[Rfam]
RNA sequence: UUAAAUUUUAAAGCGCCAGAACUUAAGUGAGGUUCUAAAUCUAUGAUUUAGUUAACCGAACUUACACAGAUGUGUAAGUGAUAAUUUAGAAACGUCCGGGUAAGUUGGACUAGCUAAGUUGGAAUUUACACGCCUGUGUAAGUUCCAGCAACCAAAUCUUUGAUUUUGGCUGUCACUUAAGUUGACGAGGAUGGGGAGUAUCGAUUCUUCGGCGGGUGCCCCACGGUAUCGCACUACCGUUAGCGGUUGAUAAAAUCGGAAAGUGAUUUCCGACACAAUAUCAACCUGGUGUUAAAA
Number, nucleotide and partner (000 for none) at each position: 001u000002u000003a000004a000005a000006u000007u000008u000009u000010a000011a000012a000013g000014c000015g000016c000017c000018a000019g000020a183021a182022c181023u180024u179025a178026a177027g176028u000029g174030a000031g000032g000033u000034u000035c000036u000037a000038a000039a000040u000041c000042u000043a000044u000045g000046a000047u000048u000049u000050a000051g000052u000053u000054a000055a000056c000057c000058g000059a000060a000061c000062u000063u000064a000065c000066a000067c000068a000069g000070a000071u000072g000073u000074g000075u000076a000077a000078g000079u000080g000081a000082u000083a000084a000085u000086u000087u000088a000089g000090a000091a000092a000093c000094g000095u000096c000097c000098g000099g000100g000101u000102a000103a000104g000105u000106u000107g000108g000109a000110c000111u000112a000113g000114c000115u000116a000117a000118g000119u000120u000121g000122g000123a000124a000125u000126u000127u000128a000129c000130a000131c000132g000133c000134c000135u000136g000137u000138g000139u000140a000141a000142g000143u000144u000145c000146c000147a000148g000149c000150a000151a000152c000153c000154a000155a000156a000157u000158c000159u000160u000161u000162g000163a000164u000165u000166u000167u000168g000169g000170c000171u000172g000173u000174c029175a000176c027177u026178u025179a024180a023181g022182u021183u020184g000185a000186c000187g000188a000189g000190g000191a000192u223193g222194g221195g220196g219197a000198g000199u000200a000201u212202c211203g210204a209205u000206u000207c000208u000209u204210c203211g202212g201213c000214g000215g000216g000217u000218g000219c196220c195221c194222c193223a192224c239225g238226g237227u236228a235229u000230c000231g000232c000233a000234c000235u228236a227237c226238c225239g224240u000241u000242a000243g000244c000245g286246g285247u284248u283249g282250a000251u000252a000253a000254a000255a000256u273257c272258g271259g270260a269261a268262a267263g000264u000265g000266a000267u262268u261269u260270c259271c258272g257273a256274c000275a000276c000277a000278a000279u000280a000281u000282c249283a248284a247285c246286c245287u000288g000289g000290u000291g000292u000293u000294a000295a000296a000297a000

Rfam assigns this 297-nucleotide RNA sequence from Clostridium aciditolerans to the family "glmS glucosamine-6-phosphate activated ribozyme aptamer". The organism belongs to Clostridium, within Bacteria. This entry contains a glucosamine-6-phosphate activated ribozyme that is found in the mRNA for GlmS. GlmS is an enzyme that uses fructose-6-phosphate and glutamine to generate glucosamine-6-phosphate.